[Rfam]
RNA sequence: GAUGUUAAGGCCAAACCCGCCGUGAGACGGGGACGGAAAGCCAUGGGUCUAAGGAGAGUGUCUUAGAUCGCCAGGUUGCCAGAA
Number, nucleotide and partner (000 for none) at each position: 001g000002a000003u081004g080005u000006u000007a000008a000009g000010g000011c036012c035013a000014a000015a000016c031017c030018c029019g028020c000021c026022g000023u000024g000025a000026g021027a000028c019029g018030g017031g016032g000033a000034c070035g012036g011037a000038a000039a077040g076041c075042c074043a000044u073045g072046g071047g068048u067049c066050u065051a064052a063053g000054g000055a000056g000057a000058g000059u000060g000061u000062c000063u052064u051065a050066g049067a048068u047069c000070g034071c046072c045073a044074g042075g041076u040077u039078g000079c000080c004081a003082g000083a000084a000
A member of the RNA family "c-di-GMP-I-GGC riboswitch aptamer" from Nitratifractor salsuginis, 84 nucleotides long. The source organism's lineage runs through Bacteria, Campylobacterota, Epsilonproteobacteria, Sulfurovaceae and Nitratifractor salsuginis. For this family Rfam cites "Bioinformatic analysis of riboswitch structures uncovers variant classes with altered ligand specificity" (Weinberg et al., Proc Natl Acad Sci U S A, 2017). The match comes from Rfam's covariance-model search (67 bits).